[Rfam]
RNA sequence: CACUCCCCGCCUGAAACUUGCUCUUAACCUGGGUAUUUGACAAGGUGAGCAAAGUUUCAGGUGUGUGCGUGC
Numbered sequence: 001c002a003c004u005c006c007c008c009g010c011c012u013g014a015a016a017c018u019u020g021c022u023c024u025u026a027a028c029c030u031g032g033g034u035a036u037u038u039g040a041c042a043a044g045g046u047g048a049g050c051a052a053a054g055u056u057u058c059a060g061g062u063g064u065g066u067g068c069g070u071g072c
Base pairs, nucleotide, nucleotide: 002070003069005067007065008063009062010061011060012059013058014057016055017054018053019052023049024048025047026046028045029044030043